[Rfam]
RNA sequence: AGUGGUGGUAGUCCUCCUCCUGGCACAUUUGUUAAGUUUUCAAAUGGGCUUGACUCUACCACAUACAUUACUUAGGAGCUGGCAAAGGCUUGAUGACAAAGAGACCUCUCAUCUCUCUCUUGCCUUCCCCUUGUCAGAUAUUGGCUCCUACAGAG
Numbered sequence: 001a002g003u004g005g006u007g008g009u010a011g012u013c014c015u016c017c018u019c020c021u022g023g024c025a026c027a028u029u030u031g032u033u034a035a036g037u038u039u040u041c042a043a044a045u046g047g048g049c050u051u052g053a054c055u056c057u058a059c060c061a062c063a064u065a066c067a068u069u070a071c072u073u074a075g076g077a078g079c080u081g082g083c084a085a086a087g088g089c090u091u092g093a094u095g096a097c098a099a100a101g102a103g104a105c106c107u108c109u110c111a112u113c114u115c116u117c118u119c120u121u122g123c124c125u126u127c128c129c130c131u132u133g134u135c136a137g138a139u140a141u142u143g144g145c146u147c148c149u150a151c152a153g154a155g
Base pairs, nucleotide, nucleotide: 005062006061007060008059009058010057011056022050023049024048026046027045028044029043030042031041075148076147077146078145079144080143081090082089083088107138108137109136
Source information: Shown here is a 155-nucleotide RNA sequence from Erinaceus europaeus, a member of the family "Small nucleolar RNA SNORA12". The literature on the family includes a 2005 paper in Nucleic Acids Res by Gu et al., "A novel experimental approach for systematic identification of box H/ACA snoRNAs from eukaryotes". The base pairs follow the family's consensus structure, which was predicted with RNAalifold. The sequence is in the family's curated seed alignment. Rfam classes the family as an H/ACA-box small nucleolar RNA.